Bacterial small signal recognition particle RNA: a 97-nucleotide RNA sequence from Corynebacterium glyciniphilum. On this family, see Righetti et al., Proc Natl Acad Sci U S A 2016: "Temperature-responsive in vitro RNA structurome of Yersinia pseudotuberculosis". The organism belongs to Corynebacterium glyciniphilum, within Bacteria. Clan: SRP clan. A search with the family's covariance model found it, with a score of 64 bits.
[Rfam]
RNA sequence: GGCCGGACGCCGCGCGGCGUGCAUCUUGUGAACUCCCCCAGGGCAGGAAUGCAGCAAGGGUCAACGAGCUCUGGCGGGUGCGCGGUGUCCUUUAAUU
Numbered sequence: 001g002g003c004c005g006g007a008c009g010c011c012g013c014g015c016g017g018c019g020u021g022c023a024u025c026u027u028g029u030g031a032a033c034u035c036c037c038c039c040a041g042g043g044c045a046g047g048a049a050u051g052c053a054g055c056a057a058g059g060g061u062c063a064a065c066g067a068g069c070u071c072u073g074g075c076g077g078g079u080g081c082g083c084g085g086u087g088u089c090c091u092u093u094a095a096u097u
Base pairs, nucleotide, nucleotide: 005090006089007088008087009086010085011084012083013082014081015078018076019075020074025068026067027066028065029064035060036059037058043052044051045050